[Rfam]
RNA sequence: AAUAUAACUAUGUACCGCGCACAUCAUUUAGGUGGGCUCCGGAAAGUCGCAUAGGAC
Numbered sequence: 001a002a003u004a005u006a007a008c009u010a011u012g013u014a015c016c017g018c019g020c021a022c023a024u025c026a027u028u029u030a031g032g033u034g035g036g037c038u039c040c041g042g043a044a045a046g047u048c049g050c051a052u053a054g055g056a057c
Base pairs, nucleotide, nucleotide: 019037020036022034023033024032025031
A member of the RNA family "Plastid-ndhJ 3UTR RNA", 57 nucleotides long. The family's consensus secondary structure was predicted with LocARNA. On this family, see Richter et al., Plant Commun 2023: "Retrograde signaling in plants: A critical review focusing on the GUN pathway and beyond". Plastid ndhJ is a non-coding RNA (ncRNA) present in plastids. It was identified as a short stem-loop motif in the 3 prime untranslate region (3UTR) of ndhJ gene.